[Rfam]
RNA sequence: CCCGCAGAAGGACGGAAAGACCCUAUGCACCUUAACUGUAAGCUGUCACUGGUCGUUUGGUUUCCAUGCUUAGCGUAAGUGGGACACUUUGAAGCGAUACUUUCGGGUAUCGUGGAGUGGACGAUGAAACACCACCCUUGGGUAUUGAACGAUCUAACCGCGACCCCUCAUCGGGGCGUGGGACCAUGUCAGCCGGUCAGUUUUACUGGGGCGGUAUCCUCCCAAAGAGUAACGGAGGAGCGCGAAGGUUGGCUCAGCGCGGUUGGCAAUCGCGUGACGAGUGUAUUGGCAUAAGCCAGCCUAACUGUGAGACUGACAAGUCGAACAGAUACGAAAGUAGGCCAAAGUGAUCCGGCGGUUUAAAGUGGAAUUGCCGUCGCUUAACGGACAAAAGGUACGCUAGGGAUAACAGGCUGAUCUUGCCCAAGAGUUCAUAUCGACGGCAAGGUUUGGCACCUCGAUGUCGGCUCAUCGCAUCCUGGGGCUGGAGAAGGUCCCAAGGGUCCGGCUGUUCGCCGGUUAAAGCGGUACGCGAGCUGGGUUCAGAACGUCGCGAGACAGUUCGGUCCUCUAUCCUCUGUGGGCGCA
Numbered sequence: 001c002c003c004g005c006a007g008a009a010g011g012a013c014g015g016a017a018a019g020a021c022c023c024u025a026u027g028c029a030c031c032u033u034a035a036c037u038g039u040a041a042g043c044u045g046u047c048a049c050u051g052g053u054c055g056u057u058u059g060g061u062u063u064c065c066a067u068g069c070u071u072a073g074c075g076u077a078a079g080u081g082g083g084a085c086a087c088u089u090u091g092a093a094g095c096g097a098u099a100c101u102u103u104c105g106g107g108u109a110u111c112g113u114g115g116a117g118u119g120g121a122c123g124a125u126g127a128a129a130c131a132c133c134a135c136c137c138u139u140g141g142g143u144a145u146u147g148a149a150c151g152a153u154c155u156a157a158c159c160g161c162g163a164c165c166c167c168u169c170a171u172c173g174g175g176g177c178g179u180g181g182g183a184c185c186a187u188g189u190c191a192g193c194c195g196g197u198c199a200g201u202u203u204u205a206c207u208g209g210g211g212c213g214g215u216a217u218c219c220u221c222c223c224a225a226a227g228a229g230u231a232a233c234g235g236a237g238g239a240g241c242g243c244g245a246a247g248g249u250u251g252g253c254u255c256a257g258c259g260c261g262g263u264u265g266g267c268a269a270u271c272g273c274g275u276g277a278c279g280a281g282u283g284u285a286u287u288g289g290c291a292u293a294a295g296c297c298a299g300c301c302u303a304a305c306u307g308u309g310a311g312a313c314u315g316a317c318a319a320g321u322c323g324a325a326c327a328g329a330u331a332c333g334a335a336a337g338u339a340g341g342c343c344a345a346a347g348u349g350a351u352c353c354g355g356c357g358g359u360u361u362a363a364a365g366u367g368g369a370a371u372u373g374c375c376g377u378c379g380c381u382u383a384a385c386g387g388a389c390a391a392a393a394g395g396u397a398c399g400c401u402a403g404g405g406a407u408a409a410c411a412g413g414c415u416g417a418u419c420u421u422g423c424c425c426a427a428g429a430g431u432u433c434a435u436a437u438c439g440a441c442g443g444c445a446a447g448g449u450u451u452g453g454c455a456c457c458u459c460g461a462u463g464u465c466g467g468c469u470c471a472u473c474g475c476a477u478c479c480u481g482g483g484g485c486u487g488g489a490g491a492a493g494g495u496c497c498c499a500a501g502g503g504u505c506c507g508g509c510u511g512u513u514c515g516c517c518g519g520u521u522a523a524a525g526c527g528g529u530a531c532g533c534g535a536g537c538u539g540g541g542u543u544c545a546g547a548a549c550g551u552c553g554c555g556a557g558a559c560a561g562u563u564c565g566g567u568c569c570u571c572u573a574u575c576c577u578c579u580g581u582g583g584g585c586g587c588a
Stems, first nucleotide, its partner, number of pairs: 001584008010576003014571001015569001022404004027400002029396005035201004042193004047188002051154011063142004068137001079135004085119003094113008158181003164176004204216004217239006240385001242342002248300006254280002257275006281290002305328004311322003330339003353379007362371001413454003417451001418448007428438002465540001466538004470532001471529005478503002481498006505519005546564004550559003
The record is a 588-nucleotide part of an RNA from Prosthecobacter gellanilyticus, which matches "Bacterial large subunit ribosomal RNA" in Rfam. Rfam links the family to the GO terms structural constituent of ribosome and ribosome. On this family, see Yusupov et al., Science 2001: "Crystal structure of the ribosome at 5.5 A resolution".